[Rfam]
The family of this 102-nucleotide RNA from Equus caballus is "mir-1298 microRNA precursor family". Rfam links the family to the GO terms RISC complex and miRNA-mediated post-transcriptional gene silencing. The family has 9 seed sequences and 128 matches in Rfam 15.1.

RNA sequence: AUGAGGAGUUAAGAGUUCAUUCGGCUGUCCAGAUGUAUCCAAGUACCCAGUUAUUUGGCAAUAAAUACAUCUGGGCAACUGAUUGAACUUUUCGCUUUUCAU
Numbered sequence: 001a002u003g004a005g006g007a008g009u010u011a012a013g014a015g016u017u018c019a020u021u022c023g024g025c026u027g028u029c030c031a032g033a034u035g036u037a038u039c040c041a042a043g044u045a046c047c048c049a050g051u052u053a054u055u056u057g058g059c060a061a062u063a064a065a066u067a068c069a070u071c072u073g074g075g076c077a078a079c080u081g082a083u084u085g086a087a088c089u090u091u092u093c094g095c096u097u098u099u100c101a102u
Stems, first nucleotide, its partner, number of pairs: 003100007011092009021082004026077013039058007